[Rfam]
RNA sequence: AAGAAAUGUAGCAUGCCUGUUAUGAUUACUCUGAUUAUUGUUGUAUCAUUACUAUUUAAGUAAUUUUGGGAAACGGGGUGUUACAGAAAUUCU
Numbered sequence: 001a002a003g004a005a006a007u008g009u010a011g012c013a014u015g016c017c018u019g020u021u022a023u024g025a026u027u028a029c030u031c032u033g034a035u036u037a038u039u040g041u042u043g044u045a046u047c048a049u050u051a052c053u054a055u056u057u058a059a060g061u062a063a064u065u066u067u068g069g070g071a072a073a074c075g076g077g078g079u080g081u082u083a084c085a086g087a088a089a090u091u092c093u
Stems, first nucleotide, its partner, number of pairs: 002093004007085008016077006